[Rfam]
RNA sequence: UUAAGAAGAACAAAGACUAAGAACGCCGCGUCCUGUGGCAACGUCUUUGUGACCCACAUCGUGUGGC
Numbered sequence: 001u002u003a004a005g006a007a008g009a010a011c012a013a014a015g016a017c018u019a020a021g022a023a024c025g026c027c028g029c030g031u032c033c034u035g036u037g038g039c040a041a042c043g044u045c046u047u048u049g050u051g052a053c054c055c056a057c058a059u060c061g062u063g064u065g066g067c
Stems, first nucleotide, its partner, number of pairs: 011049007025039005054066004

This 67-nucleotide RNA from Bacillus sp. HNG belongs to the Rfam family "Bacillaceae-1 RNA".
The match comes from Rfam's covariance-model search (71 bits).
The family's consensus secondary structure is taken from published work.